[Rfam]
RNA sequence: CGCGUAUUUUGCCCAAUAGGGCCUCGACCGCCGAGGCAAGUGAUGAUCGAUUUCAUCGACGAUCACCGCGACGUCUACGGUGUCGAGCCAAUCGGCAAGAUCCUGCCGAUGGCACCG
Number, nucleotide and partner (000 for none) at each position: 001c000002g000003c000004g000005u000006a000007u000008u000009u000010u000011g000012c000013c000014c000015a000016a000017u000018a000019g029020g028021g000022c000023c000024u000025c000026g000027a000028c020029c019030g000031c000032c000033g000034a000035g000036g000037c000038a000039a000040g000041u000042g000043a000044u000045g000046a000047u000048c000049g000050a000051u000052u000053u000054c000055a000056u000057c000058g000059a000060c000061g000062a000063u000064c000065a000066c000067c000068g000069c000070g000071a000072c000073g000074u000075c000076u000077a000078c117079g116080g115081u114082g113083u000084c000085g000086a000087g000088c000089c112090a000091a000092u109093c108094g107095g106096c105097a104098a000099g000100a000101u000102c000103c000104u097105g096106c095107c094108g093109a092110u000111g000112g089113c082114a081115c080116c079117g078